RNA sequence: AGUUGUGUUGUCAGUGAUGUACAUAUGUUGGAACUGACUCUUAAGUGAUUUCAUUCCCAAUUUGUCACUAUCACUGAGACAACACUGAA
Numbered sequence: 001a002g003u004u005g006u007g008u009u010g011u012c013a014g015u016g017a018u019g020u021a022c023a024u025a026u027g028u029u030g031g032a033a034c035u036g037a038c039u040c041u042u043a044a045g046u047g048a049u050u051u052c053a054u055u056c057c058c059a060a061u062u063u064g065u066c067a068c069u070a071u072c073a074c075u076g077a078g079a080c081a082a083c084a085c086u087g088a089a
Base pairs, nucleotide, nucleotide: 003087005085006084007083008082009081010080011079012078